[Rfam]
RNA: Acido-Lenti-1 RNA
Organism: Flavipsychrobacter stenotrophus
RNA sequence: CGAGGGGUUGAAACCCCUCGCUAUUUAUGCCGCCCUUUCAGGGCU
Numbered sequence: 001c002g003a004g005g006g007g008u009u010g011a012a013a014c015c016c017c018u019c020g021c022u023a024u025u026u027a028u029g030c031c032g033c034c035c036u037u038u039c040a041g042g043g044c045u
Base pairs, nucleotide, nucleotide: 001020002019003018004017005016006015007014008013032044033043034042035041036040